[Rfam]
RNA sequence: GACUGGUCUGAGUCCAGUGGUGCUAACAAUGAAUUGAUCUUAACCAGUUAGAGAUUUCUUUGUUCCUUCUCUACUCCCCCACUGCUUGACUUGACUAGCCUUUA
Numbered sequence: 001g002a003c004u005g006g007u008c009u010g011a012g013u014c015c016a017g018u019g020g021u022g023c024u025a026a027c028a029a030u031g032a033a034u035u036g037a038u039c040u041u042a043a044c045c046a047g048u049u050a051g052a053g054a055u056u057u058c059u060u061u062g063u064u065c066c067u068u069c070u071c072u073a074c075u076c077c078c079c080c081a082c083u084g085c086u087u088g089a090c091u092u093g094a095c096u097a098g099c100c101u102u103u104a
Base pairs, nucleotide, nucleotide: 001100003098004097005096006095007094008093010092011091014088016083017082018081019080020079022078028064029063030062032060033059

The record is a 104-nucleotide RNA from Callithrix jacchus, which matches "Y RNA" in Rfam. A search with the family's covariance model found it, with a score of 64 bits. By type it is a non-coding RNA gene. The source organism's lineage runs through Eukaryota, Teleostomi, Sarcopterygii, Boreoeutheria and Callithrix.